[Rfam]
RNA sequence: CGACAGAUAGGAGAUGACAUUCCUCCUCGCAAAAACCGCCGUUCUGGCUAAUGAUGUCUACGUUACC
Numbered sequence: 001c002g003a004c005a006g007a008u009a010g011g012a013g014a015u016g017a018c019a020u021u022c023c024u025c026c027u028c029g030c031a032a033a034a035a036c037c038g039c040c041g042u043u044c045u046g047g048c049u050a051a052u053g054a055u056g057u058c059u060a061c062g063u064u065a066c067c
Stems, first nucleotide, its partner, number of pairs: 010026004016058006038048003
Description: Rfam assigns this 67-nucleotide sequence from Acinetobacter baylyi to the family "Fluoride riboswitch aptamer (crcB RNA motif)". Lineage of the source: Bacteria > Pseudomonadota > Moraxellales > Acinetobacter > Acinetobacter baylyi. Rfam's curators put it in the seed alignment.